[Rfam]
RNA sequence: AUCGACCGGCCGGUCACACCAUGUGUCCGGCCCGCAAGUGGAGCUCCCCUCCCACCUGACCGGCCUUCGGGUCGGCGGGUUCCGGUCAGGCAGUCGGCGCCGCGUGCGCCCAAGCUGCCGAUGCGCCCCGCGGAACAAACGCGGCGGUGCUCCCGGUUGUACGGAGCCCCGCCUGUGUCCGUCCGGGGCGUUUCGU
Number, nucleotide and partner (000 for none) at each position: 001a000002u000003c000004g087005a086006c085007c084008g083009g082010c000011c000012g028013g027014u000015c000016a000017c000018a000019c000020c000021a000022u000023g000024u000025g000026u000027c013028c012029g081030g080031c079032c078033c077034g000035c058036a057037a000038g055039u054040g053041g052042a050043g049044c000045u000046c000047c000048c000049c043050u042051c000052c041053c040054a039055c038056c000057u036058g035059a000060c075061c074062g073063g072064c071065c070066u000067u000068c000069g000070g065071g064072u063073c062074g061075g060076c000077g033078g032079g031080u030081u029082c009083c008084g007085g006086u005087c004088a000089g119090g118091c117092a116093g115094u000095c000096g110097g109098c108099g000100c000101c000102g000103c000104g000105u000106g000107c000108g098109c097110c096111c000112a000113a000114g000115c093116u092117g091118c090119c089120g000121a000122u000123g000124c000125g189126c188127c187128c186129c185130g184131c181132g180133g179134a000135a000136c000137a000138a000139a000140c177141g176142c175143g173144g172145c171146g170147g169148u000149g167150c166151u165152c164153c163154c000155g000156g000157u000158u000159g000160u000161a000162c000163g153164g152165a151166g150167c149168c000169c147170c146171g145172c144173c143174u000175g142176u141177g140178u000179c133180c132181g131182u000183c000184c130185g129186g128187g127188g126189c125190g000191u000192u000193u000194c000195g000196u000